[Rfam]
RNA sequence: UUCUUCUGGAUUUUUUUUGGGAUUCUUGUUGUUGAAAGUUGAUGGAGAUGAUAUGAAGAUGAAAAAGAGAAGAAG
Dot-bracket structure: (((((.(..((((((.....((((.((......)).))))..............))))))..).)))))......
RNA: MIR5298 microRNA precursor family